[Rfam]
RNA sequence: ACCAUCCUUUUCUUGGGGUUGCGUUACUGUCCAAUGAACGUCUAGUGAGGACAGUACUGCUAACGCCUGAACAACACACCCGCAUCAACUAGAUUUAACCAGUGGAUAC
Numbered sequence: 001a002c003c004a005u006c007c008u009u010u011u012c013u014u015g016g017g018g019u020u021g022c023g024u025u026a027c028u029g030u031c032c033a034a035u036g037a038a039c040g041u042c043u044a045g046u047g048a049g050g051a052c053a054g055u056a057c058u059g060c061u062a063a064c065g066c067c068u069g070a071a072c073a074a075c076a077c078a079c080c081c082g083c084a085u086c087a088a089c090u091a092g093a094u095u096u097a098a099c100c101a102g103u104g105g106a107u108a109c
Base pairs, nucleotide, nucleotide: 006018007017008016009015021060022059023058026055027054028053029052030051031050032049038046039045082109084107085106086105088103089102090101092099

The family of this 109-nucleotide sequence from Neogale vison is "U4atac minor spliceosomal RNA". Lineage of the source: Eukaryota > Metazoa > Teleostomi > Caniformia > Neogale. Rfam 15.1 lists 1,648 matches to the family in 818 species. Rfam links the family to the GO terms U4atac snRNP, pre-mRNA 5'-splice site binding and spliceosomal tri-snRNP complex assembly. The family is grouped with related families in Rfam's "U4 clan". From the family's description: U4atac is an essential component of the minor U12-type spliceosome complex which is required for removal of the rarer class of eukaryotic introns (AT-AC, U12-type).